[Rfam]
RNA sequence: GUAAGUUGAACCACCGGUGUCGUCUUACAGGAGAGGGCAUCAAACCACCUAAAGGUGCUGUGGUAAAGAGCUAUGGUGCUGAGCGUUUAGGAAAAGGCUAUCCAUGAGAUAGUGCAGGU
Numbered sequence: 001g002u003a004a005g006u007u008g009a010a011c012c013a014c015c016g017g018u019g020u021c022g023u024c025u026u027a028c029a030g031g032a033g034a035g036g037g038c039a040u041c042a043a044a045c046c047a048c049c050u051a052a053a054g055g056u057g058c059u060g061u062g063g064u065a066a067a068g069a070g071c072u073a074u075g076g077u078g079c080u081g082a083g084c085g086u087u088u089a090g091g092a093a094a095a096g097g098c099u100a101u102c103c104a105u106g107a108g109a110u111a112g113u114g115c116a117g118g119u
Base pairs, nucleotide, nucleotide: 001011016041017040018039019038020037021036023034024033025032026031046118048091049090050089051088052087053086054080055079057077058076059075061073062072063071064070096115097113098112099111100110101109
Rfam assigns this 119-nucleotide sequence from Xiashengella succiniciproducens to the family "Group II catalytic intron D1-D4-2".
Pairs were carried over by alignment from the consensus structure.
The family has 144 seed sequences and 1,231 matches in Rfam 15.1.
The organism belongs to Xiashengella, within Bacteria.
It scores 95 bits against the family's covariance model.
Gene Ontology term of the family: Group II intron splicing.
Group II introns are found in rRNA, tRNA and mRNA of organelles in fungi, plants and protists, and also in mRNA in bacteria.